[Rfam]
RNA sequence: CAUUAUCAUAAGGGGAGCCUAUGGGGAUAGGCUGAGAAAGAGAUGGGAUCUCUGACCCUCAUAACCUGAUUUGGGUAAUGCCAACGUAGGGAUCAUUGUAUUCAUUUUCA
Numbered sequence: 001c002a003u004u005a006u007c008a009u010a011a012g013g014g015g016a017g018c019c020u021a022u023g024g025g026g027a028u029a030g031g032c033u034g035a036g037a038a039a040g041a042g043a044u045g046g047g048a049u050c051u052c053u054g055a056c057c058c059u060c061a062u063a064a065c066c067u068g069a070u071u072u073g074g075g076u077a078a079u080g081c082c083a084a085c086g087u088a089g090g091g092a093u094c095a096u097u098g099u100a101u102u103c104a105u106u107u108u109c110a
Base pairs, nucleotide, nucleotide: 006098008096009095011059012058013057014056017032018031019030020029021028039053040052041051042050043049065090066089067088068087071084072083073082074081
RNA: TPP riboswitch aptamer (THI element)
Organism: Anaerovirgula multivorans